Shown here is a 221-nucleotide sequence from Bacillus aquiflavi, a member of the family "T-box leader". By type it is a cis-regulatory leader. It scores 121 bits against the family's covariance model. Uncharged tRNA acts as the effector for transcription antitermination of genes in the T-box leader family. Lineage of the source: Bacteria > Bacillota > Bacilli > Bacillaceae > Bacillus. For this family Rfam cites "Interaction between the acceptor end of tRNA and the T box stimulates antitermination in the Bacillus subtilis tyrS gene: a new role for the discriminator base" (Grundy et al., J Bacteriol, 1994).
[Rfam]
RNA sequence: GUAAAUUCGUUGAAAAAGAGAGUAGUUUACGAAAAAUGGGAUAGCGAGUUAGGGACGGUGGGAGCCUAACGCAUUGAACGUAAAUGAACCGCACUUUGGAGAGGCUUUUUGAAAUGACAGUAGAAAAGAUCGGGGAGCCACCUCGUUAUCAACAGAAAGUGGUCGCGUAUUGCGCGGCAACUAGAGUGGCACCACGGGAAAGCUAUGCUCUCGUCUCUUGU
Numbered sequence: 001g002u003a004a005a006u007u008c009g010u011u012g013a014a015a016a017a018g019a020g021a022g023u024a025g026u027u028u029a030c031g032a033a034a035a036a037u038g039g040g041a042u043a044g045c046g047a048g049u050u051a052g053g054g055a056c057g058g059u060g061g062g063a064g065c066c067u068a069a070c071g072c073a074u075u076g077a078a079c080g081u082a083a084a085u086g087a088a089c090c091g092c093a094c095u096u097u098g099g100a101g102a103g104g105c106u107u108u109u110u111g112a113a114a115u116g117a118c119a120g121u122a123g124a125a126a127a128g129a130u131c132g133g134g135g136a137g138c139c140a141c142c143u144c145g146u147u148a149u150c151a152a153c154a155g156a157a158a159g160u161g162g163u164c165g166c167g168u169a170u171u172g173c174g175c176g177g178c179a180a181c182u183a184g185a186g187u188g189g190c191a192c193c194a195c196g197g198g199a200a201a202g203c204u205a206u207g208c209u210c211u212c213g214u215c216u217c218u219u220g221u
Base pairs, nucleotide, nucleotide: 007102008101015097016096017095018094025085026084027083028082029081030080037073038072048070049069050068051067052066053065105128106127107126108125109124110123131145132144133143162178163177164176165175166174167173168172183218184217185216186215194214195213196212197211198210